[Rfam]
RNA sequence: GGGGGUGAUUUGGCUGCAACACUUGUCACCCUGUUGAUUGCUAGGGUUGACUUGUUUGAUCUGACUGGCUGGGUGGGUGUCCUUUUUCACUGUUCCAUGUGUCCCUCCUGAAGCUGCGUGCUUGGUCGAAGAGGACGACCUUCCCCAAUAGAGACGUACUGUUCACCAGUUAAGGGUGUACAGUAGCUGUGUUCCCCUGCUACAACCUCCUAACAAGCUAAAGGUCCAGUUCUAGGACAAUGUAAGGUAGUCAAGCUUCCAUGACUGCAGACACAUCCAAAUAAGGCACUACACGGGGCAGUCUGCCAUUGCAGUUU
Numbered sequence: 001g002g003g004g005g006u007g008a009u010u011u012g013g014c015u016g017c018a019a020c021a022c023u024u025g026u027c028a029c030c031c032u033g034u035u036g037a038u039u040g041c042u043a044g045g046g047u048u049g050a051c052u053u054g055u056u057u058g059a060u061c062u063g064a065c066u067g068g069c070u071g072g073g074u075g076g077g078u079g080u081c082c083u084u085u086u087u088c089a090c091u092g093u094u095c096c097a098u099g100u101g102u103c104c105c106u107c108c109u110g111a112a113g114c115u116g117c118g119u120g121c122u123u124g125g126u127c128g129a130a131g132a133g134g135a136c137g138a139c140c141u142u143c144c145c146c147a148a149u150a151g152a153g154a155c156g157u158a159c160u161g162u163u164c165a166c167c168a169g170u171u172a173a174g175g176g177u178g179u180a181c182a183g184u185a186g187c188u189g190u191g192u193u194c195c196c197c198u199g200c201u202a203c204a205a206c207c208u209c210c211u212a213a214c215a216a217g218c219u220a221a222a223g224g225u226c227c228a229g230u231u232c233u234a235g236g237a238c239a240a241u242g243u244a245a246g247g248u249a250g251u252c253a254a255g256c257u258u259c260c261a262u263g264a265c266u267g268c269a270g271a272c273a274c275a276u277c278c279a280a281a282u283a284a285g286g287c288a289c290u291a292c293a294c295g296g297g298g299c300a301g302u303c304u305g306c307c308a309u310u311g312c313a314g315u316u317u
Stems, first nucleotide, its partner, number of pairs: 001096003005090002007085002012082002019080009029068002032063002036061004040056001042054001103156001105153003108125004113121002126148001128146001133144003186256003192250002195247002198244003208237003213233001215231002279317003283309001285307003288302003292298001
RNA: 7SK RNA